Rfam assigns this 237-nucleotide RNA sequence from Gemmiger formicilis to the family "T-box leader".
A search with the family's covariance model found it, with a score of 111 bits.
From the family's description: Uncharged tRNA acts as the effector for transcription antitermination of genes in the T-box leader family. T-boxes are found upstream of many aminoacyl-tRNA synthetase genes and some amino acid biosynthetic genes usually in Gram-positive bacteria. The anticodon of a specific tRNA base pairs to a specifier sequence within the T-box motif, and the NCCA acceptor tail of the tRNA base pairs to a conserved bulge in the T-box antiterminator hairpin.
RNA sequence: GACAAUGCGUGGAUGGGAAGUUAGUAACGGUCCCGCACCCUGCAGAGAGCUGCCGGUUGGUGCAAGGCAGCAGGGCAGCAGACCGCGAACUGAUUCCGGAGCAGACCGUCCGAAAUCACAGUAGGGCGGUACGGGCGCACCCGUUACAGUGCCGGGCCUUGUUGGAGGCCCAUGAGGUGGGGGCACUGCCCCAAUAAGAGUGGUACCGCAGAGCUAUACACAGGCUUUGUCUCUUGG
Numbered sequence: 001g002a003c004a005a006u007g008c009g010u011g012g013a014u015g016g017g018a019a020g021u022u023a024g025u026a027a028c029g030g031u032c033c034c035g036c037a038c039c040c041u042g043c044a045g046a047g048a049g050c051u052g053c054c055g056g057u058u059g060g061u062g063c064a065a066g067g068c069a070g071c072a073g074g075g076c077a078g079c080a081g082a083c084c085g086c087g088a089a090c091u092g093a094u095u096c097c098g099g100a101g102c103a104g105a106c107c108g109u110c111c112g113a114a115a116u117c118a119c120a121g122u123a124g125g126g127c128g129g130u131a132c133g134g135g136c137g138c139a140c141c142c143g144u145u146a147c148a149g150u151g152c153c154g155g156g157c158c159u160u161g162u163u164g165g166a167g168g169c170c171c172a173u174g175a176g177g178u179g180g181g182g183g184c185a186c187u188g189c190c191c192c193a194a195u196a197a198g199a200g201u202g203g204u205a206c207c208g209c210a211g212a213g214c215u216a217u218a219c220a221c222a223g224g225c226u227u228u229g230u231c232u233c234u235u236g237g
Stems, first nucleotide, its partner, number of pairs: 007102002015097004028085005038075003049071006105130007132143003180192005197234004208230008